[Rfam]
RNA sequence: CUUCGUCCGUUGCCCUUUUUCUGUUGUACUACUGUGAGCGUCCAGAAGAGCAGUGCAAUAUUAAAAGGGCAUUGGCUGGAAG
Numbered sequence: 001c002u003u004c005g006u007c008c009g010u011u012g013c014c015c016u017u018u019u020u021c022u023g024u025u026g027u028a029c030u031a032c033u034g035u036g037a038g039c040g041u042c043c044a045g046a047a048g049a050g051c052a053g054u055g056c057a058a059u060a061u062u063a064a065a066a067g068g069g070c071a072u073u074g075g076c077u078g079g080a081a082g
Stems, first nucleotide, its partner, number of pairs: 001082003005077001007075003012070008022060009
Dot-bracket structure: (((.(.(((..((((((((..(((((((((.....................)))))))))..))))))))..))).)..)))